[Rfam]
RNA sequence: UAUGGACCUGGUUAGGAGAGGUUACUUUUUAGAGAUAUGCCACUGCCCAGAAACAUCGAGAGAUGCCAACGGGUCAGCAGAUAUUAUCGAUAAGGUUUUAUCUAAUGUGGCCGGCGAAAGCCUAUGCUUUAAAGUGCUAAAACCCAACAGGAACGGGCUAAUA
Numbered sequence: 001u002a003u004g005g006a007c008c009u010g011g012u013u014a015g016g017a018g019a020g021g022u023u024a025c026u027u028u029u030u031a032g033a034g035a036u037a038u039g040c041c042a043c044u045g046c047c048c049a050g051a052a053a054c055a056u057c058g059a060g061a062g063a064u065g066c067c068a069a070c071g072g073g074u075c076a077g078c079a080g081a082u083a084u085u086a087u088c089g090a091u092a093a094g095g096u097u098u099u100a101u102c103u104a105a106u107g108u109g110g111c112c113g114g115c116g117a118a119a120g121c122c123u124a125u126g127c128u129u130u131a132a133a134g135u136g137c138u139a140a141a142a143c144c145c146a147a148c149a150g151g152a153a154c155g156g157g158c159u160a161a162u163a
Base pairs, nucleotide, nucleotide: 005159007157008156009155010154011148012147013093015144016143020138021137022136025134026133027132028131031128032127039111040110041109042108043107045074046073047072048071054065055064056063057062080102081101082100083099086096087095088094113122114121115120